[Rfam]
RNA sequence: AGCACAAGUGAUGAACAAUAAAGGGACUUAAUACUGAAACCUGAUGUUAUAUUUCAAUGUGCUGAUGUGC
Numbered sequence: 001a002g003c004a005c006a007a008g009u010g011a012u013g014a015a016c017a018a019u020a021a022a023g024g025g026a027c028u029u030a031a032u033a034c035u036g037a038a039a040c041c042u043g044a045u046g047u048u049a050u051a052u053u054u055c056a057a058u059g060u061g062c063u064g065a066u067g068u069g070c
Base pairs, nucleotide, nucleotide: 002070003069004068005067006066
This 70-nucleotide RNA from Bos taurus belongs to the Rfam family "Small nucleolar RNA SNORD82".
It is one of the family's seed sequences.
For this family Rfam cites "Purified box C/D snoRNPs are able to reproduce site-specific 2'-O-methylation of target RNA in vitro" (Galardi et al., Mol Cell Biol, 2002).
Rfam links the family to the GO terms nucleolus and RNA processing.
The family's consensus secondary structure was predicted with PFOLD.